The family of this 126-nucleotide RNA from Serratia odorifera is "RtT RNA". Rfam's curators write: This family represents a bacterial cis-regulatory element known as RtT RNA. The exact function of RtT is unknown although it is thought that it may be involved in changing the cellular response in relation to amino acid starvation. Gene Ontology term of the family: cellular response to amino acid starvation. A search with the family's covariance model found it, with a score of 102 bits. On this family, see Bosl and Kersten, Nucleic Acids Res 1991: "A novel RNA product of the tyrT operon of Escherichia coli". NCBI's taxonomy places the organism under Bacteria, Pseudomonadota, Enterobacterales, Serratia, Serratia odorifera. It is annotated as a cis-regulatory element.
RNA sequence: GCUACUGCACGCUGGGGAAGGAUGAGAAGCUUCGACAGGUUCGAGUUGAGCGUAGCGAAACAACGCGCUUUAGCGCGGCCCGCAGGGCGAGUCGCCACGCGACGAGUUAUCCUUCCCCCACCACCA
Numbered sequence: 001g002c003u004a005c006u007g008c009a010c011g012c013u014g015g016g017g018a019a020g021g022a023u024g025a026g027a028a029g030c031u032u033c034g035a036c037a038g039g040u041u042c043g044a045g046u047u048g049a050g051c052g053u054a055g056c057g058a059a060a061c062a063a064c065g066c067g068c069u070u071u072a073g074c075g076c077g078g079c080c081c082g083c084a085g086g087g088c089g090a091g092u093c094g095c096c097a098c099g100c101g102a103c104g105a106g107u108u109a110u111c112c113u114u115c116c117c118c119c120a121c122c123a124c125c126a
Base pairs, nucleotide, nucleotide: 015117016116017115018114019113020112021111023109033089034088036086040084042082043081047057048056064077065076066075067074068073